[Rfam]
RNA sequence: AUACUUACCUGGCAGCGGAGACAUCAUGAUCAGGCAGGUGGUUUUCCUAGGGUGAGGCUCAUCCCCUGAACUCUGGGAGUGCAGAUCCCUGCAGUUUCCCCAAAUGCAGGAAACUUGGCUGCAUAAUUUGUGGGAAGGGAUUUCUUUCUAUCUUA
Numbered sequence: 001a002u003a004c005u006u007a008c009c010u011g012g013c014a015g016c017g018g019a020g021a022c023a024u025c026a027u028g029a030u031c032a033g034g035c036a037g038g039u040g041g042u043u044u045u046c047c048u049a050g051g052g053u054g055a056g057g058c059u060c061a062u063c064c065c066c067u068g069a070a071c072u073c074u075g076g077g078a079g080u081g082c083a084g085a086u087c088c089c090u091g092c093a094g095u096u097u098c099c100c101c102a103a104a105u106g107c108a109g110g111a112a113a114c115u116u117g118g119c120u121g122c123a124u125a126a127u128u129u130g131u132g133g134g135a136a137g138g139g140a141u142u143u144c145u146u147u148c149u150a151u152c153u154u155a
Base pairs, nucleotide, nucleotide: 012122013121014120015119017047018046019045020044021043023042024041025040026039027038049090050089051088052087054086057082058081060079062077063076064075092117093116094115095113096112097111099109145150